[Rfam]
RNA sequence: UUAUUGCAUCGAGAGUAGGACGAAAGUCCUCGCCAACCUGCUUACCCAAGCAAGGUGGUCCAAUAAUGUGGCCCUUACAGGCAACCAAAUGGGAAUCC
Numbered sequence: 001u002u003a004u005u006g007c008a009u010c011g012a013g014a015g016u017a018g019g020a021c022g023a024a025a026g027u028c029c030u031c032g033c034c035a036a037c038c039u040g041c042u043u044a045c046c047c048a049a050g051c052a053a054g055g056u057g058g059u060c061c062a063a064u065a066a067u068g069u070g071g072c073c074c075u076u077a078c079a080g081g082c083a084a085c086c087a088a089a090u091g092g093g094a095a096u097c098c
Stems, first nucleotide, its partner, number of pairs: 006069004015031001017030005032059003037055003040051003045093004071082003
RNA: SAM-I/IV (S-adenosyl methionine) riboswitch aptamer